RNA sequence: AAUGUGUUGUUGAAAAAUCCCCAUAUAUGCUGAAGGAUAGGCUUUAGCGUUUCUACCUAGACACCGGAAUGUCUAGACUAUGCGGGAAAGCGAACUUUCC
Numbered sequence: 001a002a003u004g005u006g007u008u009g010u011u012g013a014a015a016a017a018u019c020c021c022c023a024u025a026u027a028u029g030c031u032g033a034a035g036g037a038u039a040g041g042c043u044u045u046a047g048c049g050u051u052u053c054u055a056c057c058u059a060g061a062c063a064c065c066g067g068a069a070u071g072u073c074u075a076g077a078c079u080a081u082g083c084g085g086g087a088a089a090g091c092g093a094a095c096u097u098u099c100c
Base pairs, nucleotide, nucleotide: 018086019085020084022082023081024080025079029048030047031046032045033044034043035042057076058075059074060073061072062071063070
RNA: Purine riboswitch aptamer
Organism: Sporosarcina pasteurii